[Rfam]
RNA sequence: UACAUCCACUAGGGGUGCCGCAAGGCUGAGAGGAGCAAUCCAACCCUCAUUACCUGAUCCGGGUCAUACCGGCGUAGGAAAGUUGGCUAAUUUUUAA
Dot-bracket structure: .....(.(((((((..(((....)))......((....))...)))).....((((..((((......))))..))))..))).)............